[Rfam]
RNA sequence: GUCCCGGUCCGGGCCCCUCUGGCGAUGACGGCGGUCGUCGCGAUGUCGGACCUUUCGU
Numbered sequence: 001g002u003c004c005c006g007g008u009c010c011g012g013g014c015c016c017c018u019c020u021g022g023c024g025a026u027g028a029c030g031g032c033g034g035u036c037g038u039c040g041c042g043a044u045g046u047c048g049g050a051c052c053u054u055u056c057g058u
Stems, first nucleotide, its partner, number of pairs: 006052007022041008

The record is a 58-nucleotide sequence from Caenispirillum salinarum, which matches "terC RNA" in Rfam.
The family's consensus secondary structure is taken from published work.
The match comes from Rfam's covariance-model search (62 bits).
Rfam classes the family as a cis-regulatory element.